Group II catalytic intron D1-D4-3: a 172-nucleotide sequence from Sphingomonas sanxanigenens. Pairs were carried over by alignment from the consensus structure. Lineage of the source: Bacteria > Pseudomonadati > Pseudomonadota > Alphaproteobacteria > Sphingomonas sanxanigenens. Gene Ontology term of the family: Group II intron splicing.
RNA sequence: GAUGCCGCGAGGUCGUGUGGGGAAGAAGUCUUAGGCGAACCGCAGCACCGAACGCGAGUAAACCCUUGGACAGGCCGAUCCGGUCGGGUGAGCGUGCCUCAUAACGCGACGCCCAAAAUCCAACCGAGACCGGGGCGGUAAUGAGGGCGGCGGCGGCGGGACAUUCAGUGUU
Numbered sequence: 001g002a003u004g005c006c007g008c009g010a011g012g013u014c015g016u017g018u019g020g021g022g023a024a025g026a027a028g029u030c031u032u033a034g035g036c037g038a039a040c041c042g043c044a045g046c047a048c049c050g051a052a053c054g055c056g057a058g059u060a061a062a063c064c065c066u067u068g069g070a071c072a073g074g075c076c077g078a079u080c081c082g083g084u085c086g087g088g089u090g091a092g093c094g095u096g097c098c099u100c101a102u103a104a105c106g107c108g109a110c111g112c113c114c115a116a117a118a119u120c121c122a123a124c125c126g127a128g129a130c131c132g133g134g135g136c137g138g139u140a141a142u143g144a145g146g147g148c149g150g151c152g153g154c155g156g157c158g159g160g161a162c163a164u165u166c167a168g169u170g171u172u
Base pairs, nucleotide, nucleotide: 001016004013005012006011028172030170032168035165040159041158042157043156045154046152048150049149050148063147064146065145066144067143068142074139075138076137079134080133081132082131083130084129086114087113088112089111092107093106094105095104